[Rfam]
Nucleotides: 152
Base pairs, nucleotide, nucleotide: 002148003147004146005145006144007143013134014133015132016131017130018129019128038121039120045061046060047059048058049057052112062099063098064097065096066095067094068093069092102118103117104116105115
Number, partner (000 for none) and nucleotide at each position: 001000c002148c003147g004146g005145c006144g007143a008000a009000u010000g011000c012000c013134g014133g015132u016131g017130g018129a019128a020000c021000u022000a023000c024000a025000g026000g027000a028000c029000c030000c031000c032000u033000a034000a035000u036000c037000c038121c039120c040000a041000g042000g043000u044000c045061g046060c047059g048058g049057g050000u051000u052112c053000a054000a055000a056000u057049c058048c059047c060046g061045u062099c063098g064097c065096g066095u067094c068093c069092g070000c071000c072000a073000c074000a075000u076000u077000c078000c079000c080000u081000u082000u083000g084000g085000g086000a087000u088000c089000a090000u091000a092069u093068g094067g095066a096065c097064g098063c099062g100000u101000a102118g103117c104116u105115c106000a107000g108000u109000c110000u111000g112052g113000u114000a115105g116104a117103g118102c119000a120039g121038g122000u123000a124000g125000a126000u127000g128019u129018u130017u131016c132015a133014c134013c135000a136000a137000g138000c139000c140000u141000u142000g143007u144006c145005g146004c147003c148002g149000g150000g151000c152000c